[Rfam]
RNA: MIR2118 microRNA precursor family
Organism: Triticum urartu
RNA sequence: GCCGGGAAGAGGAAGAAAAAGAGAGCUCAAGAGCACUGGGAAUGGGAACAUGGAGGAAAGACCCUCUUUUUUAUUUGCACCUCUAGUGUUGGGGGUGCAGAUAUUUCAGAUGGAUCCUUUCCGGAUGCCUCCCAUUCCUCGCGUUCUUGUGCACUCCUUCCUCUUCCUUUUGGAU
Numbered sequence: 001g002c003c004g005g006g007a008a009g010a011g012g013a014a015g016a017a018a019a020a021g022a023g024a025g026c027u028c029a030a031g032a033g034c035a036c037u038g039g040g041a042a043u044g045g046g047a048a049c050a051u052g053g054a055g056g057a058a059a060g061a062c063c064c065u066c067u068u069u070u071u072u073a074u075u076u077g078c079a080c081c082u083c084u085a086g087u088g089u090u091g092g093g094g095g096u097g098c099a100g101a102u103a104u105u106u107c108a109g110a111u112g113g114a115u116c117c118u119u120u121c122c123g124g125a126u127g128c129c130u131c132c133c134a135u136u137c138c139u140c141g142c143g144u145u146c147u148u149g150u151g152c153a154c155u156c157c158u159u160c161c162u163c164u165u166c167c168u169u170u171u172g173g174a175u
Stems, first nucleotide, its partner, number of pairs: 009166005015160003021156003026151001028149007038139010049127003055122006